[Rfam]
RNA sequence: GGCCACCUUCGGGGGGCUUUAACAUAGGCGGGGGCCUGUUCCCUGCCGUCUGCUAACGGAAGACAGAAA
Numbered sequence: 001g002g003c004c005a006c007c008u009u010c011g012g013g014g015g016g017c018u019u020u021a022a023c024a025u026a027g028g029c030g031g032g033g034g035c036c037u038g039u040u041c042c043c044u045g046c047c048g049u050c051u052g053c054u055a056a057c058g059g060a061a062g063a064c065a066g067a068a069a
Stems, first nucleotide, its partner, number of pairs: 001018004006014003027047007